Shown here is a 66-nucleotide RNA from Octodon degus, a member of the family "mir-484 microRNA precursor family". On this family, see Ahn et al., Mol Hum Reprod 2010: "MicroRNA transcriptome in the newborn mouse ovaries determined by massive parallel sequencing". The source organism's lineage runs through Eukaryota, Deuterostomia, Chordata, Euteleostomi and Octodon. The base pairs follow the family's consensus structure, which was predicted with RNAalifold. Rfam 15.1 lists 128 matches to the family in 128 species. Its family is annotated with miRNA-mediated post-transcriptional gene silencing and RISC complex in the Gene Ontology.
RNA sequence: UCGUCAGGCUCAGUCCCCUCCGGAUAAACCCCGAAAUGGGGGUCUUCCCGAGGGACUCCCUGGCCU
Numbered sequence: 001u002c003g004u005c006a007g008g009c010u011c012a013g014u015c016c017c018c019u020c021c022g023g024a025u026a027a028a029c030c031c032c033g034a035a036a037u038g039g040g041g042g043u044c045u046u047c048c049c050g051a052g053g054g055a056c057u058c059c060c061u062g063g064c065c066u
Stems, first nucleotide, its partner, number of pairs: 003064003007060002013056005019050001023047002026045001030041003
Dot-bracket structure: ..(((.((....(((((.(...((.(...(((......)))...)))..).)))))..)).)))..